[Rfam]
RNA sequence: GGCCAUAGCUAAGUAGGAAGGACGCAGGGCAAUUUCCUUGUUGCCCUGCGUCCUUCCUACUUAGCUAUGGCC
Numbered sequence: 001g002g003c004c005a006u007a008g009c010u011a012a013g014u015a016g017g018a019a020g021g022a023c024g025c026a027g028g029g030c031a032a033u034u035u036c037c038u039u040g041u042u043g044c045c046c047u048g049c050g051u052c053c054u055u056c057c058u059a060c061u062u063a064g065c066u067a068u069g070g071c072c
Stems, first nucleotide, its partner, number of pairs: 001072007010063010024049007